[Rfam]
RNA sequence: GACGGACAUCAGCGAUUCGUUCUGGGAACCAUCCCCUACCGCGAGGUAAGAGUGCAUGCCCAGCUCUUUCAUCUGCUGUUCGCCAAUCACGCGAGUCACUACGUUUUUGCUGAAAGCAUCCGCUAACUGGCGCGCCUGAGAAGCCAGGUACGCAGGAUUACAGAUAUUUGGUGGCAUAUUGCCCAAAUCUUUCGC
Numbered sequence: 001g002a003c004g005g006a007c008a009u010c011a012g013c014g015a016u017u018c019g020u021u022c023u024g025g026g027a028a029c030c031a032u033c034c035c036c037u038a039c040c041g042c043g044a045g046g047u048a049a050g051a052g053u054g055c056a057u058g059c060c061c062a063g064c065u066c067u068u069u070c071a072u073c074u075g076c077u078g079u080u081c082g083c084c085a086a087u088c089a090c091g092c093g094a095g096u097c098a099c100u101a102c103g104u105u106u107u108u109g110c111u112g113a114a115a116g117c118a119u120c121c122g123c124u125a126a127c128u129g130g131c132g133c134g135c136c137u138g139a140g141a142a143g144c145c146a147g148g149u150a151c152g153c154a155g156g157a158u159u160a161c162a163g164a165u166a167u168u169u170g171g172u173g174g175c176a177u178a179u180u181g182c183c184c185a186a187a188u189c190u191u192u193c194g195c
Base pairs, nucleotide, nucleotide: 005189006188012032014030016028017027018026020024033043035041050059062077063076064075078135079134081132082131083130084129085128087126091123092122093121095119096118099112102109103108136163137162138161140159141158144155167186168185170183171182172181